[Rfam]
RNA sequence: GGGUCAAUGAUGAGUACUUUAUAUUACCUUGAGGAGGGUUGAUGGCUUAUGUGUCACGUACAAUGGCAUGACACUGAGGAAC
Numbered sequence: 001g002g003g004u005c006a007a008u009g010a011u012g013a014g015u016a017c018u019u020u021a022u023a024u025u026a027c028c029u030u031g032a033g034g035a036g037g038g039u040u041g042a043u044g045g046c047u048u049a050u051g052u053g054u055c056a057c058g059u060a061c062a063a064u065g066g067c068a069u070g071a072c073a074c075u076g077a078g079g080a081a082c
Base pairs, nucleotide, nucleotide: 003082004081005076006075008073009072
Annotation:
A member of the RNA family "Small nucleolar RNA SNORD115" from Carlito syrichta, 82 nucleotides long. It scores 47 bits against the family's covariance model. It is annotated as a C/D-box small nucleolar RNA. Its family is annotated with nucleolus and RNA processing in the Gene Ontology.